This 118-nucleotide sequence from Artemisia annua belongs to the Rfam family "Plastid-psbA-1 3UTR RNA". Rfam describes the family as follows. Plastid psbA-1 is a non-coding RNA (ncRNA) present in plastids. It was identified in inverted repeat sequences in the 3 prime untranslate region (3UTR) of photosystem II quinone-binding protein (psbA). Rfam classes the family as a cis-regulatory element. Clan: Plastid-psbA 3UTR RNA clan.
[Rfam]
Nucleotides: 118
Base pairs, nucleotide, nucleotide: 008023010021011020012019066118067117069115070114071113072112073111074110075109076108077107078106082103084101085100087098088097
Number, partner (000 for none) and nucleotide at each position: 001000u002000a003000g004000a005000a006000a007000c008023u009000a010021u011020a012019u013000c014000u015000a016000c017000a018000a019012a020011u021010g022000g023008a024000u025000u026000a027000g028000a029000c030000u031000u032000u033000g034000g035000u036000u037000u038000a039000a040000u041000u042000g043000u044000a045000u046000u047000g048000a049000a050000g051000a052000u053000u054000u055000u056000u057000u058000u059000a060000a061000c062000u063000a064000a065000a066118a067117g068000a069115g070114g071113a072112g073111c074110a075109a076108u077107a078106g079000c080000u081000u082103u083000c084101c085100u086000c087098u088097u089000g090000u091000u092000u093000u094000a095000u096000c097088a098087a099000a100085a101084g102000g103082a104000c105000a106078u107077u108076a109075u110074u111073g112072c113071u114070c115069c116000c117067u118066u